Shown here is a 92-nucleotide RNA sequence from Roseobacter sp. AzwK-3b, a member of the family "Rhodo-rpoB RNA".
The organism belongs to Roseobacter, within Bacteria.
By type it is a cis-regulatory element.
[Rfam]
RNA sequence: CGAUCGGGAGGCUUCUGGUGGGACAGAGGCCGGGAAUGGAUCGAACCCGCCAUCUCGGAUGGGCGUGCUGCUGUGGCCCGACAGCAGGUGCG
Numbered sequence: 001c002g003a004u005c006g007g008g009a010g011g012c013u014u015c016u017g018g019u020g021g022g023a024c025a026g027a028g029g030c031c032g033g034g035a036a037u038g039g040a041u042c043g044a045a046c047c048c049g050c051c052a053u054c055u056c057g058g059a060u061g062g063g064c065g066u067g068c069u070g071c072u073g074u075g076g077c078c079c080g081a082c083a084g085c086a087g088g089u090g091c092g
Base pairs, nucleotide, nucleotide: 001043002042003041004040005039010031011030012029013028014027015026016025017024064092065091066090067089068088069086070085071084072083073082
Dot-bracket structure: (((((....((((((((......)))))))).......)))))....................((((((((((........))))).)))))